RNA sequence: GGUUGUGGUAGUUUCUUUCUGGCACAUUUGUUAAGUUUUCAAAUGGGUCUGACUCUACCACAUACAUUGUAAGGAGCUAGCAAAAGCUUAGAGACUGAAAUAUCUCUCUUGAGCUUUUUUGUAUGAGAUAUUGGCUCUCACAAUC
Numbered sequence: 001g002g003u004u005g006u007g008g009u010a011g012u013u014u015c016u017u018u019c020u021g022g023c024a025c026a027u028u029u030g031u032u033a034a035g036u037u038u039u040c041a042a043a044u045g046g047g048u049c050u051g052a053c054u055c056u057a058c059c060a061c062a063u064a065c066a067u068u069g070u071a072a073g074g075a076g077c078u079a080g081c082a083a084a085a086g087c088u089u090a091g092a093g094a095c096u097g098a099a100a101u102a103u104c105u106c107u108c109u110u111g112a113g114c115u116u117u118u119u120u121g122u123a124u125g126a127g128a129u130a131u132u133g134g135c136u137c138u139c140a141c142a143a144u145c
Base pairs, nucleotide, nucleotide: 005061006060007059008058009057010056011055021049022048023047025045026044027043028042029041030040073138074137075136076135077134078133079088080087081086105130107128108127109126
Shown here is a 145-nucleotide RNA sequence from Cavia porcellus, a member of the family "Small nucleolar RNA SNORA12".
On this family, see Gu et al., Nucleic Acids Res 2005: "A novel experimental approach for systematic identification of box H/ACA snoRNAs from eukaryotes".
Rfam's curators put it in the seed alignment.
Rfam links the family to the GO terms RNA processing and nucleolus.
Taxonomically the source falls in Cavia (Eukaryota, Tetrapoda, Mammalia, Caviidae).